[Rfam]
RNA sequence: AGUUGGAGAGUGUCGCCGGCAAUGUCGCCCCCGCUGGCGGCGCUUUCCGGGGGACGGGUGAACAGCCCGUCCCUGCUUAUACCUUCCGUCCGGAGCAAGCCCCCCUCCGUCGGAAGGUCAGGCGGGCGGUGGAGUUCCCCCAGCUCCAUCGCCCGCUUUC
Numbered sequence: 001a002g003u004u005g006g007a008g009a010g011u012g013u014c015g016c017c018g019g020c021a022a023u024g025u026c027g028c029c030c031c032c033g034c035u036g037g038c039g040g041c042g043c044u045u046u047c048c049g050g051g052g053g054a055c056g057g058g059u060g061a062a063c064a065g066c067c068c069g070u071c072c073c074u075g076c077u078u079a080u081a082c083c084u085u086c087c088g089u090c091c092g093g094a095g096c097a098a099g100c101c102c103c104c105c106u107c108c109g110u111c112g113g114a115a116g117g118u119c120a121g122g123c124g125g126g127c128g129g130u131g132g133a134g135u136u137c138c139c140c141c142a143g144c145u146c147c148a149u150c151g152c153c154c155g156c157u158u159u160c
Stems, first nucleotide, its partner, number of pairs: 008045007016037004050074010075123002082117002086113003092108004124154012
Dot-bracket structure: .......(((((((.((((..............)))).)))))))....((((((((((.....))))))))))((.....((..(((...((((.........))))..)))..))....))((((((((((((.......))))))))))))......
Bradyrhizobiaceae sRNA BjrC80: a 160-nucleotide RNA from Rhodopseudomonas palustris. NCBI's taxonomy places the organism under Bacteria, Pseudomonadati, Alphaproteobacteria, Rhodopseudomonas, Rhodopseudomonas palustris. The pairing is the family consensus, mapped onto this sequence. By type it is a small RNA. The literature on the family includes a 2012 paper in RNA Biol by Madhugiri et al., "Small RNAs of the Bradyrhizobium/Rhodopseudomonas lineage and their analysis". It is one of the family's seed sequences.